[Rfam]
RNA sequence: AAGACCACGAGCUAAUAAAUACUGAGAGGAUUGACUCGAGAACAAA
Numbered sequence: 001a002a003g004a005c006c007a008c009g010a011g012c013u014a015a016u017a018a019a020u021a022c023u024g025a026g027a028g029g030a031u032u033g034a035c036u037c038g039a040g041a042a043c044a045a046a
Base pairs, nucleotide, nucleotide: 006040009037010036011035013033014032015031016030

The record is a 46-nucleotide sequence from Ziziphus jujuba, which matches "Plastid-rpl16 group II-D1 intron" in Rfam.
Rfam describes the family as follows. Plastid-rpl16 is a non-coding RNA (ncRNA) recognised in plastids. It was recognised in and intronic region of a ribosome rpl16 gene.
The organism belongs to Ziziphus jujuba, within Eukaryota.
Rfam links the family to the GO term Group II intron splicing.
The family's consensus secondary structure was predicted with LocARNA.